[Rfam]
RNA sequence: UGAGUAAGCCGGAUAGUCGCGGGUACAGUGCCGAAAGGCCGUACACGAGGAAAGUCCGGGCUCCGCAGGGCAGGGUGCCGGGUAACUCCCGGUGAAGGCGACUUCAAGGAAAGUGCAACAGAAAUAUACCGCCUGCUGAAGAUUGAGGUCGAGUGCUUUCGGUUUUCAGCAUGGUAAGGGUGGAAAGGUGAGGUAAGAGCUCACCAGCGGUAUGGCGACUUACCGGCUAUGUAAACCCCACCCGGAGCAACACCGCAUAGAGGGACGUUAAGGUGGCCCGCCAGUCCCGGGUAGGUGGCUUGAGCUAUAUAGAAAUAUAUAGCCUAGAUAGAUGACUAUCCAAGACAGAACCCGGCUUACAGGCUUACUCAAUAU
Numbered sequence: 001u002g003a004g005u006a007a008g009c010c011g012g013a014u015a016g017u018c019g020c021g022g023g024u025a026c027a028g029u030g031c032c033g034a035a036a037g038g039c040c041g042u043a044c045a046c047g048a049g050g051a052a053a054g055u056c057c058g059g060g061c062u063c064c065g066c067a068g069g070g071c072a073g074g075g076u077g078c079c080g081g082g083u084a085a086c087u088c089c090c091g092g093u094g095a096a097g098g099c100g101a102c103u104u105c106a107a108g109g110a111a112a113g114u115g116c117a118a119c120a121g122a123a124a125u126a127u128a129c130c131g132c133c134u135g136c137u138g139a140a141g142a143u144u145g146a147g148g149u150c151g152a153g154u155g156c157u158u159u160c161g162g163u164u165u166u167c168a169g170c171a172u173g174g175u176a177a178g179g180g181u182g183g184a185a186a187g188g189u190g191a192g193g194u195a196a197g198a199g200c201u202c203a204c205c206a207g208c209g210g211u212a213u214g215g216c217g218a219c220u221u222a223c224c225g226g227c228u229a230u231g232u233a234a235a236c237c238c239c240a241c242c243c244g245g246a247g248c249a250a251c252a253c254c255g256c257a258u259a260g261a262g263g264g265a266c267g268u269u270a271a272g273g274u275g276g277c278c279c280g281c282c283a284g285u286c287c288c289g290g291g292u293a294g295g296u297g298g299c300u301u302g303a304g305c306u307a308u309a310u311a312g313a314a315a316u317a318u319a320u321a322g323c324c325u326a327g328a329u330a331g332a333u334g335a336c337u338a339u340c341c342a343a344g345a346c347a348g349a350a351c352c353c354g355g356c357u358u359a360c361a362g363g364c365u366u367a368c369u370c371a372a373u374a375u
Stems, first nucleotide, its partner, number of pairs: 001371010011360001012340007020047002023044004028039001052358003056355005061247004068277001073243005078092005093107001094105004108238002113236002115232003129179002131175003134171015187205006207227001208225005214219001251297004262288005272282004304323008
RNA: Bacterial RNase P class A
Organism: Acetivibrio thermocellus